[Rfam]
RNA sequence: UGCAUUUGAAGUAGAGAUUGUGCUGCUACGCGCCCAUUGGGCCAAAAGAAAUGCGGGAAGGGGCACACCCGCCAAAUGCC
Numbered sequence: 001u002g003c004a005u006u007u008g009a010a011g012u013a014g015a016g017a018u019u020g021u022g023c024u025g026c027u028a029c030g031c032g033c034c035c036a037u038u039g040g041g042c043c044a045a046a047a048g049a050a051a052u053g054c055g056g057g058a059a060g061g062g063g064c065a066c067a068c069c070c071g072c073c074a075a076a077u078g079c080c
Stems, first nucleotide, its partner, number of pairs: 002079007011029004020066005031048001032042004053072005
RNA: skipping-rope RNA